[Rfam]
RNA sequence: AUGGGAUCUAUGAUGGUUUUCAGAGAUUGCAUUAUCUAUCUGUAGUUUCUUCAAAGGAGUUGAAGAUAAUCGUAAUUGACUGAGAUCUUGC
Numbered sequence: 001a002u003g004g005g006a007u008c009u010a011u012g013a014u015g016g017u018u019u020u021c022a023g024a025g026a027u028u029g030c031a032u033u034a035u036c037u038a039u040c041u042g043u044a045g046u047u048u049c050u051u052c053a054a055a056g057g058a059g060u061u062g063a064a065g066a067u068a069a070u071c072g073u074a075a076u077u078g079a080c081u082g083a084g085a086u087c088u089u090g091c
Base pairs, nucleotide, nucleotide: 002090003089004088005087006086007085